Record summary
This 96-nucleotide RNA from Callithrix jacchus belongs to the Rfam family "Small nucleolar RNA SNORD91 family". The source organism's lineage runs through Eukaryota, Opisthokonta, Deuterostomia, Euarchontoglires and Callithrix.
RNA sequence: UAGAGAAGUCAGUGAUGGUUUUAUUCAAUACUGUCUGAACCUGUCUGAAGCAUCUCAGUGAUGCAUUCUCUGUGUGGUUCUGAGACUUCUCCAAAU
Numbered sequence: 001u002a003g004a005g006a007a008g009u010c011a012g013u014g015a016u017g018g019u020u021u022u023a024u025u026c027a028a029u030a031c032u033g034u035c036u037g038a039a040c041c042u043g044u045c046u047g048a049a050g051c052a053u054c055u056c057a058g059u060g061a062u063g064c065a066u067u068c069u070c071u072g073u074g075u076g077g078u079u080c081u082g083a084g085a086c087u088u089c090u091c092c093a094a095a096u
Stems, first nucleotide, its partner, number of pairs: 004090007